[Rfam]
RNA: U11 spliceosomal RNA
RNA sequence: AAAAAGGGCUGCUGUCGUGAAUGGCACACAAAGGGCAGCUCUAUUGCUCUAUGUGCAGAAUCAACAUCAAUAGAUUUCGGAAGCAUAAUUUUUUGGUCCCUGGGCAGCUGGUGAUUGUUGGUUCUGGCACCCUU
Dot-bracket structure: .......(((.((((((....)))))((((.(((((((.....))))))).))))(.(((((..........))))).)).))).................(((..(((((.((((...))))))))).)))..